[Rfam]
RNA: Transposase-1 RNA
RNA sequence: CAUUCAGAGAUUGCCUCUGUCAUUACCUACUCUAGUAGAUAUGGGAAUGCAAUUGUUGA
Dot-bracket structure: ........((((((.....((((...(((......)))..))))....)))))).....
Numbered sequence: 001c002a003u004u005c006a007g008a009g010a011u012u013g014c015c016u017c018u019g020u021c022a023u024u025a026c027c028u029a030c031u032c033u034a035g036u037a038g039a040u041a042u043g044g045g046a047a048u049g050c051a052a053u054u055g056u057u058g059a
Stems, first nucleotide, its partner, number of pairs: 009054006020044004027038003